RNA sequence: GUUCCCGAUGAUGCUUAUAUAUUUGACCAUGCUAAUUCUGAUGUUUUCGUGACGGAAAACCCUUGAUCGAAUUUCUGAUGGGAAUA
Numbered sequence: 001g002u003u004c005c006c007g008a009u010g011a012u013g014c015u016u017a018u019a020u021a022u023u024u025g026a027c028c029a030u031g032c033u034a035a036u037u038c039u040g041a042u043g044u045u046u047u048c049g050u051g052a053c054g055g056a057a058a059a060c061c062c063u064u065g066a067u068c069g070a071a072u073u074u075c076u077g078a079u080g081g082g083a084a085u086a
Stems, first nucleotide, its partner, number of pairs: 001085007

A member of the RNA family "Small nucleolar RNA snoR53Y" from Cuscuta campestris, 86 nucleotides long. A search with the family's covariance model found it, with a score of 55 bits. A reference for the family is Brown et al. (2001), "Multiple snoRNA gene clusters from Arabidopsis", RNA. NCBI's taxonomy places the organism under Eukaryota, Mesangiospermae, asterids, Cuscuta, Cuscuta sect. Cleistogrammica. The family is grouped with related families in Rfam's "snoR53 clan".